Shown here is a 64-nucleotide sequence from Firmicutes bacterium M10-2, a member of the family "RAGATH-18 RNA".
From the family's description: Actinobacteria, Firmicutes, Fusobacteria, Thermotogae (1 example).
Pairs were carried over by alignment from the consensus structure, which is taken from published work.
[Rfam]
RNA sequence: ACUGUGGAGUGUACAAGAACUUGUGAGUAGUGGGAACACAAAAGCAUACACGAAGAAGCAGUAA
Number, nucleotide and partner (000 for none) at each position: 001a062002c061003u060004g059005u058006g000007g000008a000009g051010u050011g049012u048013a047014c000015a000016a000017g000018a000019a000020c000021u000022u046023g045024u044025g000026a000027g000028u000029a000030g039031u038032g037033g000034g000035a000036a000037c032038a031039c030040a000041a000042a000043a000044g024045c023046a022047u013048a012049c011050a010051c009052g000053a000054a000055g000056a000057a000058g005059c004060a003061g002062u001063a000064a000